[Rfam]
RNA sequence: CGGGAUAACCCCCGUUAAGGAACUAGGCAAAAUGGCCCCGUAACUUUGGGAGAAGGGGUGCUCUCUGGUGUGAAUAGCACCGGGGAGCCGCAGUGACAAGGCUCCGGCGACUGUUUACCAAAAACACAGGACUCUGCUAACUCGAAAGAGGAAGUAUAGGGUCUGACGCCUGCCCAGUGCCGGAAGGUUAAGGGGAGGGGUUAGCCCGAAAGGGCGAAGCUCUGAACCGAAGCCCCGGCAAACGGCGGCCGUAACUAUAACGGUCCUAAGGUAGCGAAAUUCCUUGUCGGGUAAGUUCCGACCUGCACGAAUGGCGUAACGAUCGGAGCACUGUCUCAACGGGGGGCCCG
Numbered sequence: 001c002g003g004g005a006u007a008a009c010c011c012c013c014g015u016u017a018a019g020g021a022a023c024u025a026g027g028c029a030a031a032a033u034g035g036c037c038c039c040g041u042a043a044c045u046u047u048g049g050g051a052g053a054a055g056g057g058g059u060g061c062u063c064u065c066u067g068g069u070g071u072g073a074a075u076a077g078c079a080c081c082g083g084g085g086a087g088c089c090g091c092a093g094u095g096a097c098a099a100g101g102c103u104c105c106g107g108c109g110a111c112u113g114u115u116u117a118c119c120a121a122a123a124a125c126a127c128a129g130g131a132c133u134c135u136g137c138u139a140a141c142u143c144g145a146a147a148g149a150g151g152a153a154g155u156a157u158a159g160g161g162u163c164u165g166a167c168g169c170c171u172g173c174c175c176a177g178u179g180c181c182g183g184a185a186g187g188u189u190a191a192g193g194g195g196a197g198g199g200g201u202u203a204g205c206c207c208g209a210a211a212g213g214g215c216g217a218a219g220c221u222c223u224g225a226a227c228c229g230a231a232g233c234c235c236c237g238g239c240a241a242a243c244g245g246c247g248g249c250c251g252u253a254a255c256u257a258u259a260a261c262g263g264u265c266c267u268a269a270g271g272u273a274g275c276g277a278a279a280u281u282c283c284u285u286g287u288c289g290g291g292u293a294a295g296u297u298c299c300g301a302c303c304u305g306c307a308c309g310a311a312u313g314g315c316g317u318a319a320c321g322a323u324c325g326g327a328g329c330a331c332u333g334u335c336u337c338a339a340c341g342g343g344g345g346g347c348c349c350g
Stems, first nucleotide, its partner, number of pairs: 001350004009345008018336003035059005044049001060088012089093001101329007108321002112126003129164008137154001141150003167316004172246003177243002179239005186234003192228002197223005204215004247265006266270001276303001286302006